[Rfam]
RNA: mir-2 microRNA precursor family
RNA sequence: CCAAUCGUCAAAUUGGUUGUGGCGUGUUGCUUUUCUAGAUUUCAUAUCACAGCCAUUUUUGACGAUUUGGA
Numbered sequence: 001c002c003a004a005u006c007g008u009c010a011a012a013u014u015g016g017u018u019g020u021g022g023c024g025u026g027u028u029g030c031u032u033u034u035c036u037a038g039a040u041u042u043c044a045u046a047u048c049a050c051a052g053c054c055a056u057u058u059u060u061g062a063c064g065a066u067u068u069g070g071a
Stems, first nucleotide, its partner, number of pairs: 005065008014055009025046003